[Rfam]
RNA sequence: CUAGAUCCCUCGAACCCGACCCUCAGCCGCGCACCCUGACUCACUUCCCCAGAGCCAGGUCGCAGCGGAUGGGGAUCAGGUUCGAGGGCCCGGCCCCC
Numbered sequence: 001c002u003a004g005a006u007c008c009c010u011c012g013a014a015c016c017c018g019a020c021c022c023u024c025a026g027c028c029g030c031g032c033a034c035c036c037u038g039a040c041u042c043a044c045u046u047c048c049c050c051a052g053a054g055c056c057a058g059g060u061c062g063c064a065g066c067g068g069a070u071g072g073g074g075a076u077c078a079g080g081u082u083c084g085a086g087g088g089c090c091c092g093g094c095c096c097c098c
Stems, first nucleotide, its partner, number of pairs: 010085007018077002021074005027068004031063002035059004040054003

A member of the RNA family "mraW RNA" from Pseudolysinimonas yzui, 98 nucleotides long. The source organism's lineage runs through Bacteria, Actinomycetota, Micrococcales, Microbacteriaceae and Pseudolysinimonas. The base pairs follow the family's consensus structure, which is taken from published work.